[Rfam]
U5 spliceosomal RNA: a 118-nucleotide sequence from Hibiscus syriacus. It scores 89 bits against the family's covariance model. U5 RNA is a component of both types of known spliceosome. The precise function of this molecule is unknown, though it is known that the 5' loop is required for splice site selection and p220 binding, and that both the 3' stem-loop and the Sm site are important for Sm protein binding and cap methylation. The base pairs follow the family's consensus structure, which is taken from published work. NCBI's taxonomy places the organism under Eukaryota, Streptophyta, Tracheophyta, Spermatophyta, Hibiscus.

RNA sequence: AGUCACGCGGUGAGCACAUAGCGAAUUAUUCUUUCGCCUUUUACUAAAGAAUACCGUGUGCUCGUUGCACAAAGUGGCAUACGCUUAUUUUUGGAGGGCUUAUUCUAUGGAAUGAGCC
Numbered sequence: 001a002g003u004c005a006c007g008c009g010g011u012g013a014g015c016a017c018a019u020a021g022c023g024a025a026u027u028a029u030u031c032u033u034u035c036g037c038c039u040u041u042u043a044c045u046a047a048a049g050a051a052u053a054c055c056g057u058g059u060g061c062u063c064g065u066u067g068c069a070c071a072a073a074g075u076g077g078c079a080u081a082c083g084c085u086u087a088u089u090u091u092u093g094g095a096g097g098g099c100u101u102a103u104u105c106u107a108u109g110g111a112a113u114g115a116g117c118c
Stems, first nucleotide, its partner, number of pairs: 003077004008067011027053008097118006